Shown here is a 171-nucleotide sequence from Nocardiopsis metallicus, a member of the family "Group II catalytic intron D1-D4-3". From the family's description: Group II introns are found in rRNA, tRNA and mRNA of organelles in fungi, plants and protists, and also in mRNA in bacteria.
RNA sequence: GUCACCGCGAGGUGGGGUCGGGAGGAAGCCCGAGGCGAAACCCUGCACUGAGGAACACGAACCGCAUACAAGGCAGUCCGGUCGGGGUGAGCCAGCCAUGGAUGGCGAAGCCCGUCACUGCCAAGACGGCCGGGGUGUAGAUGCGGCAGGCGUAGGGGGAAAGUAGCUGUU
Numbered sequence: 001g002u003c004a005c006c007g008c009g010a011g012g013u014g015g016g017g018u019c020g021g022g023a024g025g026a027a028g029c030c031c032g033a034g035g036c037g038a039a040a041c042c043c044u045g046c047a048c049u050g051a052g053g054a055a056c057a058c059g060a061a062c063c064g065c066a067u068a069c070a071a072g073g074c075a076g077u078c079c080g081g082u083c084g085g086g087g088u089g090a091g092c093c094a095g096c097c098a099u100g101g102a103u104g105g106c107g108a109a110g111c112c113c114g115u116c117a118c119u120g121c122c123a124a125g126a127c128g129g130c131c132g133g134g135g136u137g138u139a140g141a142u143g144c145g146g147c148a149g150g151c152g153u154a155g156g157g158g159g160a161a162a163g164u165a166g167c168u169g170u171u
Stems, first nucleotide, its partner, number of pairs: 002015005028171001030169001032167001035164002041157005048149003062146006073138003077134007085113004091106004